[Rfam]
The family of this 117-nucleotide RNA from Myotis myotis is "Small nucleolar RNA SNORA65". U65 belongs to the H/ACA class of snoRNAs which are thought to guide the sites of modification of uridines to pseudouridines.
RNA sequence: UAGACAACUGAAUAAAGAAGAUGUUGCAAUCCAGUGGUGAGCGGAAACUAAACCCCAGCUUAGAAACAGGGUUAUUCUUCAUGUGGAUGACUUUGUGCCGAAAGCAUGGGAACAACC
Dot-bracket structure: ...(((.((........).).)))............................(((.(((((.(...((((((..(((.......)))..))))))..)...)))).)))).......
A search with the family's covariance model found it, with a score of 78 bits.
Rfam 15.1 lists 1,089 matches to the family in 619 species.